Rfam assigns this 112-nucleotide RNA sequence from Luteipulveratus mongoliensis to the family "SAM (S-adenosyl methionine) riboswitch aptamer". About the family: SAM-IV is a mRNA element that regulates gene expression via direct sensing of S-adenosylmethionine (SAM or AdoMet). SAM-IV riboswitches share conserved nucleotide positions with the previously described SAM-I riboswitches sequence analysis and molecular recognition experiments suggest that SAM-I and SAM-IV riboswitches share similar ligand binding sites, but have different scaffolds.
[Rfam]
RNA sequence: UGUCAAGAGUCUCAGCGCCAAGCCCCGGCUGGCUGAGCGGCAACCCUCCACCGCGGUGGGGUGCCCCGGGUGAGGACAAGGUCGAACCACAAAGGCUCGACAAGCGCGGGGC
Numbered sequence: 001u002g003u004c005a006a007g008a009g010u011c012u013c014a015g016c017g018c019c020a021a022g023c024c025c026c027g028g029c030u031g032g033c034u035g036a037g038c039g040g041c042a043a044c045c046c047u048c049c050a051c052c053g054c055g056g057u058g059g060g061g062u063g064c065c066c067c068g069g070g071u072g073a074g075g076a077c078a079a080g081g082u083c084g085a086a087c088c089a090c091a092a093a094g095g096c097u098c099g100a101c102a103a104g105c106g107c108g109g110g111g112c
Stems, first nucleotide, its partner, number of pairs: 001078004009038001011037006021030002039065003044061003048056002081101005087095002